The family of this 67-nucleotide RNA from Gossypium lobatum is "MIR164 microRNA precursor family". A reference for the family is Reinhart et al. (2002), "MicroRNAs in plants", Genes Dev. NCBI's taxonomy places the organism under Eukaryota, Spermatophyta, Pentapetalae, malvids, Gossypium. Rfam 15.1 lists 201 matches to the family in 125 species. Pairs were carried over by alignment from the consensus structure, which was predicted with RNAalifold.
RNA sequence: UGGAGAAGGGGAGCACGUGCAAAGCUCACUUAAACAUAGGAACUUGCACGUGCCCUGCUUCUCCAAC
Dot-bracket structure: ((((((((.((.((((((((((.....................)))))))))).)).))))))))..
Numbered sequence: 001u002g003g004a005g006a007a008g009g010g011g012a013g014c015a016c017g018u019g020c021a022a023a024g025c026u027c028a029c030u031u032a033a034a035c036a037u038a039g040g041a042a043c044u045u046g047c048a049c050g051u052g053c054c055c056u057g058c059u060u061c062u063c064c065a066a067c
Stems, first nucleotide, its partner, number of pairs: 001065008010056002013053010